RNA sequence: AAUGCGUCACAACGGCUUCCUGACGUGGCGUCUGAUGAUCCAAUGGAGCG
Numbered sequence: 001a002a003u004g005c006g007u008c009a010c011a012a013c014g015g016c017u018u019c020c021u022g023a024c025g026u027g028g029c030g031u032c033u034g035a036u037g038a039u040c041c042a043a044u045g046g047a048g049c050g
Base pairs, nucleotide, nucleotide: 004031005030006029007028008027009026010025013022014021015049016048017047019046020045
The family of this 50-nucleotide RNA from Roseobacter cerasinus is "SAM/SAH riboswitch aptamer".
A search with the family's covariance model found it, with a score of 52 bits.
On this family, see Weickhmann et al., Nucleic Acids Res 2019: "The structure of the SAM/SAH-binding riboswitch".